[Rfam]
RNA sequence: AGUGGCUCAUUCACCUUCUUAUGUCAGCCCCACGCGAGCGCUACAUAAACCUCGAAUGACGCACUUACAGGUGCCUGCCGUCCACCCAUUGAUACAGCAUUCGCUCUAUCAGACAUCGGACGAAACGUUGAGUAAGGCACCGCCUA
Dot-bracket structure: ....((((((((......((((((.(((...........))))))))).....)))))).)).......(((((((..(((((......(((((............)))))......)))))..((.....)).))))))).....
The record is a 146-nucleotide sequence from Atlantibacter hermannii, which matches "Glm Y RNA activator of glmS mRNA" in Rfam. The source organism's lineage runs through Bacteria, Pseudomonadota, Gammaproteobacteria, Enterobacterales and Atlantibacter hermannii. About the family: This family consists of a number of bacterial RNA genes of around 167 bases in length. The tke1 RNA gene is present in Escherichia coli, Shigella flexneri, Yersinia pestis and Salmonella species where it is found between the yfhK and purL genes. The function of this RNA is unknown. Clan: Glm clan. The match comes from Rfam's covariance-model search (127 bits). By type it is a small RNA.